tRNA: an 88-nucleotide RNA from Arthrobacter rhombi. It is annotated as a transfer RNA.

[Rfam]
RNA sequence: GGAAGGUUGUCCGAGCGGCCUAUGGAGCUGGUCUUGAAAACCAGUGUGCGGUAACCCCGCACCAAGGGUUCAAAUCCCUUACCUUCCG
Dot-bracket structure: (((((((..((((.........)))).(((((.......)))))...................(((((.......)))))))))))).
A search with the family's covariance model found it, with a score of 52 bits.